Rfam assigns this 82-nucleotide RNA sequence from Neogobius melanostomus to the family "mir-181 microRNA precursor family".
The organism belongs to Neogobius, within Eukaryota.
On this family, see Lagos-Quintana et al., RNA 2003: "New microRNAs from mouse and human".
RNA sequence: UGCCUUUGGGGAACAUUCAACGCUGUCGGUGAGUUUGAGCUCAGACCUAAACCAUCGACCGUUGACUGUACCCUGAGGAACA
Number, nucleotide and partner (000 for none) at each position: 001u082002g081003c000004c078005u077006u076007u075008g074009g000010g000011g000012a000013a000014c068015a067016u000017u065018c064019a063020a062021c061022g060023c000024u000025g059026u058027c057028g056029g055030u054031g053032a000033g052034u051035u050036u049037g000038a000039g000040c000041u000042c000043a000044g000045a000046c000047c000048u000049a036050a035051a034052c033053c031054a030055u029056c028057g027058a026059c025060c022061g021062u020063u019064g018065a017066c000067u015068g014069u000070a000071c000072c000073c000074u008075g007076a006077g005078g004079a000080a000081c002082a001
Its family is annotated with miRNA-mediated post-transcriptional gene silencing and RISC complex in the Gene Ontology.